[Rfam]
RNA: nadA riboswitch
RNA sequence: GCUUUCAACAUCCCCGUUCCGGGGCGAGGUUUUUCUUUCCAGAAGAGCCUCGCGGCCAGAACUGAAGGC
Numbered sequence: 001g002c003u004u005u006c007a008a009c010a011u012c013c014c015c016g017u018u019c020c021g022g023g024g025c026g027a028g029g030u031u032u033u034u035c036u037u038u039c040c041a042g043a044a045g046a047g048c049c050u051c052g053c054g055g056c057c058a059g060a061a062c063u064g065a066a067g068g069c
Base pairs, nucleotide, nucleotide: 001069002068003067004066005065006064007063013055016062017061018060019059021057022056026051027050028049029048030047031046032045033044034043035042036041